[Rfam]
RNA: Streptomyces-metH RNA
RNA sequence: CACCCCUGUUCCGCGGAAUACCUAUCGAGCACCCUUGCGCAGGCCCUAUACGCUGACCGGGUGCGCUGUCUCCAGGGACGGCGCAAAGCCGACAGCCGUCGCAUCCCAGGGAGCUCUUCCAUG
Numbered sequence: 001c002a003c004c005c006c007u008g009u010u011c012c013g014c015g016g017a018a019u020a021c022c023u024a025u026c027g028a029g030c031a032c033c034c035u036u037g038c039g040c041a042g043g044c045c046c047u048a049u050a051c052g053c054u055g056a057c058c059g060g061g062u063g064c065g066c067u068g069u070c071u072c073c074a075g076g077g078a079c080g081g082c083g084c085a086a087a088g089c090c091g092a093c094a095g096c097c098g099u100c101g102c103a104u105c106c107c108a109g110g111g112a113g114c115u116c117u118u119c120c121a122u123g
Stems, first nucleotide, its partner, number of pairs: 062085004067080004088102002091100003